Record summary: This 220-nucleotide sequence belongs to the Rfam family "IS605-orfB-I RNA". Rfam's curators put it in the seed alignment.
RNA sequence: GUCGUAUAAAGAUGCAUUAGAUGCAAGACAAUCUAGCAUUUCCCUUUACGGCAUUGUAGUAAAAUUAGAAGUUCAAGCAAAAGAAAUUGUUGCCUGGUUAAUAAUCGAAACAAUUUGAGUUUGAAUGGAAGAGGUUAACCGUAUGACCUUGUGUUGAAAAGCACUAAAAAUAAUCUUGAAUAACGAUUUCUGAAUUUUCGUUAUUUUGAGUUACGGCUAG
Numbered sequence: 001g002u003c004g005u006a007u008a009a010a011g012a013u014g015c016a017u018u019a020g021a022u023g024c025a026a027g028a029c030a031a032u033c034u035a036g037c038a039u040u041u042c043c044c045u046u047u048a049c050g051g052c053a054u055u056g057u058a059g060u061a062a063a064a065u066u067a068g069a070a071g072u073u074c075a076a077g078c079a080a081a082a083g084a085a086a087u088u089g090u091u092g093c094c095u096g097g098u099u100a101a102u103a104a105u106c107g108a109a110a111c112a113a114u115u116u117g118a119g120u121u122u123g124a125a126u127g128g129a130a131g132a133g134g135u136u137a138a139c140c141g142u143a144u145g146a147c148c149u150u151g152u153g154u155u156g157a158a159a160a161g162c163a164c165u166a167a168a169a170a171u172a173a174u175c176u177u178g179a180a181u182a183a184c185g186a187u188u189u190c191u192g193a194a195u196u197u198u199c200g201u202u203a204u205u206u207u208g209a210g211u212u213a214c215g216g217c218u219a220g
Stems, first nucleotide, its partner, number of pairs: 001052006008045001010041006018035005023029001071126008085115007096106002099103001132149005139216005144170001151164005175210003178206008